The record is a 102-nucleotide RNA from Budvicia aquatica, which matches "t44 RNA" in Rfam. A search with the family's covariance model found it, with a score of 79 bits. It is annotated as a small RNA. On this family, see Tjaden et al., Nucleic Acids Res 2002: "Transcriptome analysis of Escherichia coli using high-density oligonucleotide probe arrays". Lineage of the source: Bacteria > Pseudomonadati > Pseudomonadota > Gammaproteobacteria > Budvicia.
RNA sequence: CAUUAAUCAACGUUAUAACACACACGUAUCGACACAUACGGCGGGGUGCCCUGAUGUCUUAGCACUUAGGGGUCGGCGUUAUGGGAUACGUGGAGGCAUAAC
Numbered sequence: 001c002a003u004u005a006a007u008c009a010a011c012g013u014u015a016u017a018a019c020a021c022a023c024a025c026g027u028a029u030c031g032a033c034a035c036a037u038a039c040g041g042c043g044g045g046g047u048g049c050c051c052u053g054a055u056g057u058c059u060u061a062g063c064a065c066u067u068a069g070g071g072g073u074c075g076g077c078g079u080u081a082u083g084g085g086a087u088a089c090g091u092g093g094a095g096g097c098a099u100a101a102c
Base pairs, nucleotide, nucleotide: 023092024091025090026089027088028087029086030085035083036082037081038080040077042075043074048073049072050071051070052069